[Rfam]
RNA sequence: CAUAUGUUUCAGGGCGGGGCGAAAUUCCCCACCGGCGGUAAAUGGAUGCGAAACGUGCGUCCACAAGCCCGCGAGCCGCGCAAGCGGUUGAUCCGGUGCGAAUCCGGGGCCGACGGUAUAGUCCGGAUGAGAGAAACGAGGU
Number, nucleotide and partner (000 for none) at each position: 001c000002a000003u140004a000005u138006g137007u136008u135009u134010c133011a000012g000013g000014g000015c000016g000017g029018g028019g027020c000021g000022a000023a000024a000025u000026u000027c019028c018029c017030c000031a122032c121033c112034g111035g072036c071037g070038g069039u000040a000041a000042a000043u000044g000045g000046a000047u000048g000049c000050g000051a000052a000053a000054c000055g000056u000057g000058c000059g000060u000061c000062c000063a000064c000065a000066a000067g110068c109069c038070c037071g036072c035073g000074a000075g088076c087077c086078g000079c000080g000081c000082a000083a000084g000085c000086g077087g076088u075089u000090g000091a000092u108093c107094c106095g105096g104097u000098g000099c000100g000101a000102a000103u000104c096105c095106g094107g093108g092109g068110c067111c034112g033113a000114c125115g124116g123117u000118a000119u000120a000121g032122u031123c116124c115125g114126g000127a000128u000129g000130a000131g000132a000133g010134a009135a008136a007137c006138g005139a000140g003141g000142u000
RNA: FMN riboswitch aptamer (RFN element)
Organism: Collinsella tanakaei